[Rfam]
RNA: Qrr RNA
Organism: Vibrio campbellii
RNA sequence: UGACCCUUCUUAAGCCGAGGGUCACCUAGCCAACUGACGUUGUUAGUGAACUCGAAUUUGUUCACAAAUAUAUAAGCCAAUCGCACAAAUUGCGGUUGGCUAUUUUUUU
Numbered sequence: 001u002g003a004c005c006c007u008u009c010u011u012a013a014g015c016c017g018a019g020g021g022u023c024a025c026c027u028a029g030c031c032a033a034c035u036g037a038c039g040u041u042g043u044u045a046g047u048g049a050a051c052u053c054g055a056a057u058u059u060g061u062u063c064a065c066a067a068a069u070a071u072a073u074a075a076g077c078c079a080a081u082c083g084c085a086c087a088a089a090u091u092g093c094g095g096u097u098g099g100c101u102a103u104u105u106u107u108u109u
Base pairs, nucleotide, nucleotide: 001024002023003022004021005020006019040074041072042071043070046065047064048063049062050061051060077099078098079097080096081095082094083093084092